This 72-nucleotide RNA sequence from Orthohepacivirus hominis belongs to the Rfam family "Hepatitis C virus stem-loop SL2531 and SL2549AU". Rfam's curators put it in the seed alignment. The literature on the family includes a 2016 paper in Mol Cell by Pirakitikulr et al., "The Coding Region of the HCV Genome Contains a Network of Regulatory RNA Structures". The family's consensus secondary structure was predicted with RNAfold.
[Rfam]
RNA sequence: UGUUGGCAGACGCCAGGGUCUGUGCAUGCCUUUGGAUGCUCAUCAUACUGGGCCAAGCCGAGGCGGCGCUUG
Numbered sequence: 001u002g003u004u005g006g007c008a009g010a011c012g013c014c015a016g017g018g019u020c021u022g023u024g025c026a027u028g029c030c031u032u033u034g035g036a037u038g039c040u041c042a043u044c045a046u047a048c049u050g051g052g053c054c055a056a057g058c059c060g061a062g063g064c065g066g067c068g069c070u071u072g
Stems, first nucleotide, its partner, number of pairs: 006023006024067002027065005034058001037055002